[Rfam]
RNA sequence: GAAGAGAAAGCCAAACCCGUCGUGAGGCGGGGACGGAAAGCCACGGGUCUUUUUCGGCAAUAAUGCCGGGAUACAAGAUAGCCGGGUUGCCAAGA
Numbered sequence: 001g002a003a004g005a006g007a008a009a010g011c012c013a014a015a016c017c018c019g020u021c022g023u024g025a026g027g028c029g030g031g032g033a034c035g036g037a038a039a040g041c042c043a044c045g046g047g048u049c050u051u052u053u054u055c056g057g058c059a060a061u062a063a064u065g066c067c068g069g070g071a072u073a074c075a076a077g078a079u080a081g082c083c084g085g086g087u088u089g090c091c092a093a094g095a
Stems, first nucleotide, its partner, number of pairs: 004091001011036002016031006034081001039088004044084003047079005

The family of this 95-nucleotide RNA sequence from Pseudodesulfovibrio piezophilus is "c-di-GMP-I-GGC riboswitch aptamer".
The source organism's lineage runs through Bacteria, Thermodesulfobacteriota, Desulfovibrionales, Desulfovibrionaceae and Pseudodesulfovibrio piezophilus.
A reference for the family is Weinberg et al. (2017), "Bioinformatic analysis of riboswitch structures uncovers variant classes with altered ligand specificity", Proc Natl Acad Sci U S A.
It scores 70 bits against the family's covariance model.